[Rfam]
The record is a 113-nucleotide RNA sequence, which matches "DUF3800-I RNA" in Rfam. Rfam's curators put it in the seed alignment. From the family's description: Actinobacteria, Firmicutes, Fusobacteria, Proteobacteria (1 example), Tenericutes (2 examples). By type it is a small RNA.
RNA sequence: UUAUAUUGCAGAUAAGAAUAUUUAUACUGUAUAUCUGUGAUAACUGAAUGAAAGUUUAAGCGUUAUGUAAGAACGUCAGCCACAGAGCCACUAUUUGAGUGGUGUUUUUUUAU
Numbered sequence: 001u002u003a004u005a006u007u008g009c010a011g012a013u014a015a016g017a018a019u020a021u022u023u024a025u026a027c028u029g030u031a032u033a034u035c036u037g038u039g040a041u042a043a044c045u046g047a048a049u050g051a052a053a054g055u056u057u058a059a060g061c062g063u064u065a066u067g068u069a070a071g072a073a074c075g076u077c078a079g080c081c082a083c084a085g086a087g088c089c090a091c092u093a094u095u096u097g098a099g100u101g102g103u104g105u106u107u108u109u110u111u112a113u
Base pairs, nucleotide, nucleotide: 007031008030009029010028011027012025013024014023015022016021034086035085036084037083038082039081044079045078046077047056048055049054060076061075062074063073064072087103088102089101090100091099092098